[Rfam]
RNA sequence: AUGUUAUCAAGAAAGGUGGAGGGAAUAGACCCGCUGAAGCCUUAGCAACCCUUAUUAUUAAGAAGGUGCUAAAUUCUACUAUAUUUUUUAAUUCAUUAAUUAAGAAAUUGGAUAGAUAACCC
Numbered sequence: 001a002u003g004u005u006a007u008c009a010a011g012a013a014a015g016g017u018g019g020a021g022g023g024a025a026u027a028g029a030c031c032c033g034c035u036g037a038a039g040c041c042u043u044a045g046c047a048a049c050c051c052u053u054a055u056u057a058u059u060a061a062g063a064a065g066g067u068g069c070u071a072a073a074u075u076c077u078a079c080u081a082u083a084u085u086u087u088u089u090a091a092u093u094c095a096u097u098a099a100u101u102a103a104g105a106a107a108u109u110g111g112a113u114a115g116a117u118a119a120c121c122c
Stems, first nucleotide, its partner, number of pairs: 003120006013043005021032003026078004044070004049066002051062004074114001079111003084106005
SAM riboswitch aptamer (S box leader): a 122-nucleotide RNA sequence from Winogradskyella aurantia. It scores 72 bits against the family's covariance model. The source organism's lineage runs through Bacteria, Bacteroidota, Flavobacteriia, Flavobacteriaceae and Winogradskyella.